SAM (S-adenosyl methionine) riboswitch aptamer: a 112-nucleotide sequence from Actinacidiphila alni. It scores 94 bits against the family's covariance model. From the family's description: SAM-IV is a mRNA element that regulates gene expression via direct sensing of S-adenosylmethionine (SAM or AdoMet). SAM-IV riboswitches share conserved nucleotide positions with the previously described SAM-I riboswitches sequence analysis and molecular recognition experiments suggest that SAM-I and SAM-IV riboswitches share similar ligand binding sites, but have different scaffolds. The literature on the family includes a 2008 paper in RNA by Weinberg et al., "The aptamer core of SAM-IV riboswitches mimics the ligand-binding site of SAM-I riboswitches".
RNA sequence: GGUGACGAGCGUCAGCCACGAGCCCUGGCAGGCUGACCGGCAACCCUCCCUCGCGGCGGGGUGCCCCAGGUGACAACCAGGCGGGUCCCGACCGGACCCGCAAGCGCGAUAC
Numbered sequence: 001g002g003u004g005a006c007g008a009g010c011g012u013c014a015g016c017c018a019c020g021a022g023c024c025c026u027g028g029c030a031g032g033c034u035g036a037c038c039g040g041c042a043a044c045c046c047u048c049c050c051u052c053g054c055g056g057c058g059g060g061g062u063g064c065c066c067c068a069g070g071u072g073a074c075a076a077c078c079a080g081g082c083g084g085g086u087c088c089c090g091a092c093c094g095g096a097c098c099c100g101c102a103a104g105c106g107c108g109a110u111a112c
Base pairs, nucleotide, nucleotide: 001078002077003076009038011037012036013035014034015033016032022029039065040064041063044061045060046059048056049055081101082100083099084098085097086096087095088094